[Rfam]
RNA: SAM riboswitch aptamer (S box leader)
Organism: Hydrotalea sandarakina
RNA sequence: UACUUAUCAAGAAAGGCAGAGGGAAUUGGCCCAAUGAAGCCUUGGCAACCCAUGUUUUACAUGAAGGUGCCAACUCCAUCCCGGAAACGGGAAAGAUAAGUC
Numbered sequence: 001u002a003c004u005u006a007u008c009a010a011g012a013a014a015g016g017c018a019g020a021g022g023g024a025a026u027u028g029g030c031c032c033a034a035u036g037a038a039g040c041c042u043u044g045g046c047a048a049c050c051c052a053u054g055u056u057u058u059a060c061a062u063g064a065a066g067g068u069g070c071c072a073a074c075u076c077c078a079u080c081c082c083g084g085a086a087a088c089g090g091g092a093a094a095g096a097u098a099a100g101u102c
Stems, first nucleotide, its partner, number of pairs: 002101007013043005021032003027078003044071004049067002051063004075094001080091004